[Rfam]
RNA: Lysine riboswitch aptamer
RNA sequence: UAUCAAUCUAGAGGUUGCGAUGAACUAAGACGGCUAGUCGAGUAUGAGGGUACUGUGAAACUGGCCAGAGGAGACAUCGCCGAAAUGACUGCCGGCCUCACCGACAGUUGUUGGGGUAAAGGUGAAUAACUUUUACACUGUCUCAGUUUCAACUGAGUUGCGCUACGAUUAAU
Numbered sequence: 001u002a003u004c005a006a007u008c009u010a011g012a013g014g015u016u017g018c019g020a021u022g023a024a025c026u027a028a029g030a031c032g033g034c035u036a037g038u039c040g041a042g043u044a045u046g047a048g049g050g051u052a053c054u055g056u057g058a059a060a061c062u063g064g065c066c067a068g069a070g071g072a073g074a075c076a077u078c079g080c081c082g083a084a085a086u087g088a089c090u091g092c093c094g095g096c097c098u099c100a101c102c103g104a105c106a107g108u109u110g111u112u113g114g115g116g117u118a119a120a121g122g123u124g125a126a127u128a129a130c131u132u133u134u135a136c137a138c139u140g141u142c143u144c145a146g147u148u149u150c151a152a153c154u155g156a157g158u159u160g161c162g163c164u165a166c167g168a169u170u171a172a173u
Base pairs, nucleotide, nucleotide: 007167009165010164011163017080018079019078020077021076022075025073026072032066033065034064035063036062037061038060084112085111086110087109088108089107090106091105093103094102095101113139114138116136117135118134119133120132121131122130123129142157143156144155145154146153147152